[Rfam]
Record summary: Rfam assigns this 92-nucleotide RNA sequence from Chrysochloris asiatica to the family "Small nucleolar RNA SNORD116". The base pairs follow the family's consensus structure, which was predicted with PFOLD. Its family is annotated with nucleolus and RNA processing in the Gene Ontology. On this family, see Cavaille et al., Proc Natl Acad Sci U S A 2000: "Identification of brain-specific and imprinted small nucleolar RNA genes exhibiting an unusual genomic organization".
RNA sequence: GGAUCGAUGAUGACUACUGCUUAUACAUUCCUUGGAAAUCUGAACAAAAUGAGUGAAAACUCUUUGCCGUCUCAUUCAUUGACCUGAGGUCC
Numbered sequence: 001g002g003a004u005c006g007a008u009g010a011u012g013a014c015u016a017c018u019g020c021u022u023a024u025a026c027a028u029u030c031c032u033u034g035g036a037a038a039u040c041u042g043a044a045c046a047a048a049a050u051g052a053g054u055g056a057a058a059a060c061u062c063u064u065u066g067c068c069g070u071c072u073c074a075u076u077c078a079u080u081g082a083c084c085u086g087a088g089g090u091c092c
Base pairs, nucleotide, nucleotide: 001092002091003090004089005088026055027054028053029052030051032047033046034045
Dot-bracket structure: (((((....................(((((.(((..........)))...)))))................................)))))